[Rfam]
RNA: Small nucleolar RNA SNORA3/SNORA45 family
RNA sequence: UAAGAGACUCAGAGUCUCAUCUUGACAAACACUGUUGUCUUGGUGUGCUAGAGUUCUCUAAGAGCAAAAACUGGUCCUAUUCACCGACUGGUUCCUUGUAGACCAGUCACCCACAUGGGCAGUUACAAGU
Numbered sequence: 001u002a003a004g005a006g007a008c009u010c011a012g013a014g015u016c017u018c019a020u021c022u023u024g025a026c027a028a029a030c031a032c033u034g035u036u037g038u039c040u041u042g043g044u045g046u047g048c049u050a051g052a053g054u055u056c057u058c059u060a061a062g063a064g065c066a067a068a069a070a071c072u073g074g075u076c077c078u079a080u081u082c083a084c085c086g087a088c089u090g091g092u093u094c095c096u097u098g099u100a101g102a103c104c105a106g107u108c109a110c111c112c113a114c115a116u117g118g119g120c121a122g123u124u125a126c127a128a129g130u
Stems, first nucleotide, its partner, number of pairs: 003059004007054003013049002016047001018045004024039004071122003075118002086108002089105005